[Rfam]
RNA sequence: AUAAUGAUACUUCUGCCGAGUCCCAGUUAUCGCAAGGACGGCAGCUCGCAUGAAGGGAGAGGUGAAACGCCUAUGU
Numbered sequence: 001a002u003a004a005u006g007a008u009a010c011u012u013c014u015g016c017c018g019a020g021u022c023c024c025a026g027u028u029a030u031c032g033c034a035a036g037g038a039c040g041g042c043a044g045c046u047c048g049c050a051u052g053a054a055g056g057g058a059g060a061g062g063u064g065a066a067a068c069g070c071c072u073a074u075g076u
Stems, first nucleotide, its partner, number of pairs: 012073001013044006045059003049055001060072003

The family of this 76-nucleotide RNA is "pemK RNA". Rfam's curators put it in the seed alignment.